Shown here is a 102-nucleotide sequence from Aneurinibacillus migulanus, a member of the family "Purine riboswitch aptamer". It scores 87 bits against the family's covariance model.
RNA sequence: UCAAAAUAUAAGAGUACACCUUGUAUAUGUUCGGGAAUAUGGCCCGGACGUUUCUACCGGGCUUCCGUAAAAAGCUUGACUACAGGGGAUAACGAGAAAAAG
Numbered sequence: 001u002c003a004a005a006a007u008a009u010a011a012g013a014g015u016a017c018a019c020c021u022u023g024u025a026u027a028u029g030u031u032c033g034g035g036a037a038u039a040u041g042g043c044c045c046g047g048a049c050g051u052u053u054c055u056a057c058c059g060g061g062c063u064u065c066c067g068u069a070a071a072a073a074g075c076u077u078g079a080c081u082a083c084a085g086g087g088g089a090u091a092a093c094g095a096g097a098a099a100a101a102g
Stems, first nucleotide, its partner, number of pairs: 019087007029049007058078007